RNA sequence: UAGUAUCGGUGAAGAUGCCGAUUACCCGCAGUGGGACGAAAAGACCCUGUGCACCUUUACUAUAGCUUAGUAUUGUAAUUGGAUAAGUGAUGUGUAGGAUAGGUGGGAGACUAUGAAUGGGCUUCGCCAGGAGUUCAGGAGUCAUUGUUGAAAUACCACCCUUUGCUUAUCUGAUUACUAACCCCUUUCAAGGGGGACAUUGCUUGGUGGGUAGUUUGACUGGGGUGGUCGCCUCCAAAAGAGUAACGGAGGCUUCUAAAGGUUCCCUCAACACGCUUGGUAACCGUGUGUAGAGUGCAAUGGCAAAAGGGAGCUUGACUGAGAGACCCACAAGUCGAUCAGGUACGAAAGUAGAGCAUAGUGAUCCGGUGGUUCCGUAUGGAAGGGCCAUCGCUCAAAGGAUAAAAGGUACGCCGGGGAUAACAGGCUGAUCUCCCCCAAGAGCUCACAUCGACGGGGGGGUUUGGCACCUCGAUGUCGGCUCGUCACAUCCUGGGGCUGGAGAAGGUCCCAAGGGUUGGGCUGUUCGCCCAUUAAAGUGGCACGCGAGCUGGGUUCAGAACGUCGUGAGACAGUUCGGUCUCUAUCUACUGUGGGCGU
Numbered sequence: 001u002a003g004u005a006u007c008g009g010u011g012a013a014g015a016u017g018c019c020g021a022u023u024a025c026c027c028g029c030a031g032u033g034g035g036a037c038g039a040a041a042a043g044a045c046c047c048u049g050u051g052c053a054c055c056u057u058u059a060c061u062a063u064a065g066c067u068u069a070g071u072a073u074u075g076u077a078a079u080u081g082g083a084u085a086a087g088u089g090a091u092g093u094g095u096a097g098g099a100u101a102g103g104u105g106g107g108a109g110a111c112u113a114u115g116a117a118u119g120g121g122c123u124u125c126g127c128c129a130g131g132a133g134u135u136c137a138g139g140a141g142u143c144a145u146u147g148u149u150g151a152a153a154u155a156c157c158a159c160c161c162u163u164u165g166c167u168u169a170u171c172u173g174a175u176u177a178c179u180a181a182c183c184c185c186u187u188u189c190a191a192g193g194g195g196g197a198c199a200u201u202g203c204u205u206g207g208u209g210g211g212u213a214g215u216u217u218g219a220c221u222g223g224g225g226u227g228g229u230c231g232c233c234u235c236c237a238a239a240a241g242a243g244u245a246a247c248g249g250a251g252g253c254u255u256c257u258a259a260a261g262g263u264u265c266c267c268u269c270a271a272c273a274c275g276c277u278u279g280g281u282a283a284c285c286g287u288g289u290g291u292a293g294a295g296u297g298c299a300a301u302g303g304c305a306a307a308a309g310g311g312a313g314c315u316u317g318a319c320u321g322a323g324a325g326a327c328c329c330a331c332a333a334g335u336c337g338a339u340c341a342g343g344u345a346c347g348a349a350a351g352u353a354g355a356g357c358a359u360a361g362u363g364a365u366c367c368g369g370u371g372g373u374u375c376c377g378u379a380u381g382g383a384a385g386g387g388c389c390a391u392c393g394c395u396c397a398a399a400g401g402a403u404a405a406a407a408g409g410u411a412c413g414c415c416g417g418g419g420a421u422a423a424c425a426g427g428c429u430g431a432u433c434u435c436c437c438c439c440a441a442g443a444g445c446u447c448a449c450a451u452c453g454a455c456g457g458g459g460g461g462g463u464u465u466g467g468c469a470c471c472u473c474g475a476u477g478u479c480g481g482c483u484c485g486u487c488a489c490a491u492c493c494u495g496g497g498g499c500u501g502g503a504g505a506a507g508g509u510c511c512c513a514a515g516g517g518u519u520g521g522g523c524u525g526u527u528c529g530c531c532c533a534u535u536a537a538a539g540u541g542g543c544a545c546g547c548g549a550g551c552u553g554g555g556u557u558c559a560g561a562a563c564g565u566c567g568u569g570a571g572a573c574a575g576u577u578c579g580g581u582c583u584c585u586a587u588c589u590a591c592u593g594u595g596g597g598c599g600u
Base pairs, nucleotide, nucleotide: 005022006021007020008019009018025597026596027595028594029593030592031591032590034589035588036587038584039583046418047417048416049415051414052413053410054409055408056407057406059215060214061213062212066207067206069204070203071202072201075178076177077176078175079174080173081172082171083170084169085168086167087166088165089164090163092161102160103159104158105157106156109143110142111141118137119136120135121134122133123132124131125130182195183194184193186192187191218230219229220228221227231253232252233251234250235249236248254399256356257355262314263313264312265311266310267309268294269293271289272288273287274286275285295304296303319342320341321340322339325336326335327334344353345352346351367393368392369391370390371389372388373387375386376385427468428467429466431465432462433461434460435459436458437457438456442452443451479554480552481551482550483549484546485543486542487541488540489539492517493516495512496511497510498509499508500507519533520532521531522530523529560578561577562576563575564573565572566571
This 600-nucleotide part of an RNA from Avrilella dinanensis belongs to the Rfam family "Bacterial large subunit ribosomal RNA". Pairs were carried over by alignment from the consensus structure, which is taken from published work.